[Rfam]
RNA sequence: CAUGCACCAGUGGGGCCCCUCAGCCUGGCCUGUGGGAUCAGGUGGAAACUGGCUCUCUGACAUCCCCCAAGGUGUCCUGUAUUGCAAGAGGGCACAGGCCAGGCUGAGGGACCCCAUUGGUGCAUG
Number, nucleotide and partner (000 for none) at each position: 001c000002a000003u124004g123005c000006a121007c000008c119009a118010g117011u000012g115013g114014g113015g112016c000017c110018c109019c108020u107021c106022a105023g104024c103025c102026u000027g100028g099029c098030c097031u096032g095033u094034g093035g000036g000037a000038u000039c000040a000041g000042g000043u000044g000045g000046a000047a000048a000049c000050u000051g000052g000053c000054u000055c000056u000057c000058u000059g000060a000061c000062a000063u000064c000065c000066c000067c000068c000069a000070a000071g000072g000073u000074g000075u000076c000077c000078u000079g000080u000081a000082u000083u000084g000085c000086a000087a000088g000089a000090g000091g000092g000093c034094a033095c032096a031097g030098g029099c028100c027101a000102g025103g024104c023105u022106g021107a020108g019109g018110g017111a000112c015113c014114c013115c012116a000117u010118u009119g008120g000121u006122g000123c004124a003125u000126g000